[Rfam]
RNA sequence: UUCAAUAAUGCGCCGAAUUUUCAUAAGAAAUAUGGGGGAACCAUUUUUUAUGGGGUGAAUUUCGUUGUUUAUUCAACGAAUAGGGUAACCUGUGCAUACCCGAAUCCGUCAGCUAACCUCGUAGGCGAUAUGCUAGCAGGA
Numbered sequence: 001u002u003c004a005a006u007a008a009u010g011c012g013c014c015g016a017a018u019u020u021u022c023a024u025a026a027g028a029a030a031u032a033u034g035g036g037g038g039a040a041c042c043a044u045u046u047u048u049u050a051u052g053g054g055g056u057g058a059a060u061u062u063c064g065u066u067g068u069u070u071a072u073u074c075a076a077c078g079a080a081u082a083g084g085g086u087a088a089c090c091u092g093u094g095c096a097u098a099c100c101c102g103a104a105u106c107c108g109u110c111a112g113c114u115a116a117c118c119u120c121g122u123a124g125g126c127g128a129u130a131u132g133c134u135a136g137c138a139g140g141a
Base pairs, nucleotide, nucleotide: 011127012126013125014124019030020029032122033121034120035119036118037117042052043051053107054106055105061080062079063078064077065076066075083101084100085099086098

Rfam assigns this 141-nucleotide RNA from Paenibacillus antarcticus to the family "c-di-AMP riboswitch aptamer (ydaO/yuaA leader)". The organism belongs to Paenibacillus, within Bacteria. Rfam describes the family as follows. This family represents a conserved RNA structure found upstream of the ydaO and yuaA genes in Bacillus subtilis and related genes in other bacteria.